[Rfam]
Bacillus-plasmid RNA: a 67-nucleotide sequence from Bacillus cereus.

RNA sequence: CGUGUCAACGAUACCGGACCGAGCCCGAAAGGGAUAGGGAGGAUAAGGAGUUGAUACGUCCACUACA
Numbered sequence: 001c002g003u004g005u006c007a008a009c010g011a012u013a014c015c016g017g018a019c020c021g022a023g024c025c026c027g028a029a030a031g032g033g034a035u036a037g038g039g040a041g042g043a044u045a046a047g048g049a050g051u052u053g054a055u056a057c058g059u060c061c062a063c064u065a066c067a
Stems, first nucleotide, its partner, number of pairs: 001058009

The sequence is in the family's curated seed alignment.